Archaeal small subunit ribosomal RNA: a 359-nucleotide part of an RNA from Thermocladium modestius.
A reference for the family is Yusupov et al. (2001), "Crystal structure of the ribosome at 5.5 A resolution", Science.
Pairs were carried over by alignment from the consensus structure, which is taken from published work.
The family is grouped with related families in Rfam's "SSU clan".

[Rfam]
RNA sequence: GGCCUAAAGCGCCCGUAGCCGGCCCGGCAAGCCUUGCUCUGAAAUCCCCGGGCUCAACCCGGGGGCUGGGGAAGGUACUGCCGGGCUUGGGGGCGGGAGAGGCCGAGGGUACUCCUGGGGUAGGGGCGAAAUCCGAUAAUCCCAGGAGGACCACCAGUGGCGGAGGCGCUCGGCUGGAACGCGCCCGACGGUGAGGGGCGAAAGCUGGGGGAGCAAAGGGGAUUAGAUACCCCUGUAGUCCCAGCUGUAAACUAUGCGGGCUAGCUGUUGGGCGGGCUUAGAGCCCGCCCAGUGGCGUAGGGAAGCCGUUAAGCCCGCCGCCUGGGGAGUACGGCCGCAAGGCUGAAACUUAAAGGAAU
Numbered sequence: 001g002g003c004c005u006a007a008a009g010c011g012c013c014c015g016u017a018g019c020c021g022g023c024c025c026g027g028c029a030a031g032c033c034u035u036g037c038u039c040u041g042a043a044a045u046c047c048c049c050g051g052g053c054u055c056a057a058c059c060c061g062g063g064g065g066c067u068g069g070g071g072a073a074g075g076u077a078c079u080g081c082c083g084g085g086c087u088u089g090g091g092g093g094c095g096g097g098a099g100a101g102g103c104c105g106a107g108g109g110u111a112c113u114c115c116u117g118g119g120g121u122a123g124g125g126g127c128g129a130a131a132u133c134c135g136a137u138a139a140u141c142c143c144a145g146g147a148g149g150a151c152c153a154c155c156a157g158u159g160g161c162g163g164a165g166g167c168g169c170u171c172g173g174c175u176g177g178a179a180c181g182c183g184c185c186c187g188a189c190g191g192u193g194a195g196g197g198g199c200g201a202a203a204g205c206u207g208g209g210g211g212a213g214c215a216a217a218g219g220g221g222a223u224u225a226g227a228u229a230c231c232c233c234u235g236u237a238g239u240c241c242c243a244g245c246u247g248u249a250a251a252c253u254a255u256g257c258g259g260g261c262u263a264g265c266u267g268u269u270g271g272g273c274g275g276g277c278u279u280a281g282a283g284c285c286c287g288c289c290c291a292g293u294g295g296c297g298u299a300g301g302g303a304a305g306c307c308g309u310u311a312a313g314c315c316c317g318c319c320g321c322c323u324g325g326g327g328a329g330u331a332c333g334g335c336c337g338c339a340a341g342g343c344u345g346a347a348a349c350u351u352a353a354a355g356g357a358a359u
Stems, first nucleotide, its partner, number of pairs: 001322003009319001011199004016193001018192003022086007030079002032075004037071005046064007090186003093182003101175007108152002112148008123134003160167002204245006213239002218234004256318006264296014300307002324351003333344004